The record is a 122-nucleotide RNA from Clostridium sp. CAG:307, which matches "Ribosomal protein L10 leader" in Rfam.
Rfam links the family to the GO term regulation of gene expression.
The family's consensus secondary structure was predicted with CMfinder.

RNA sequence: AAAAAAAUCAAAUAUAUGCCGAAGAAAGUAGGCGUGCAUUUGGCACUUAAUUUCUACCGAGGUAUAGUAAAAGAAACUAAAGUCUUUUCUAUGCAGGUAGGAGAGACUUUUAAUUAUUAUUA
Number, nucleotide and partner (000 for none) at each position: 001a000002a000003a000004a000005a000006a000007a000008u000009c000010a000011a000012a000013u000014a000015u000016a000017u000018g000019c000020c000021g000022a000023a000024g000025a000026a000027a000028g057029u056030a055031g054032g053033c000034g046035u045036g044037c000038a000039u000040u000041u000042g000043g000044c036045a035046c034047u000048u000049a000050a000051u000052u000053u032054c031055u030056a029057c028058c000059g000060a000061g000062g000063u000064a000065u000066a000067g000068u000069a000070a000071a000072a000073g000074a000075a000076a000077c000078u000079a000080a000081a000082g107083u106084c105085u104086u103087u102088u101089c100090u099091a098092u000093g000094c000095a000096g000097g000098u091099a090100g089101g088102a087103g086104a085105g084106a083107c082108u000109u000110u000111u000112a000113a000114u000115u000116a000117u000118u000119a000120u000121u000122a000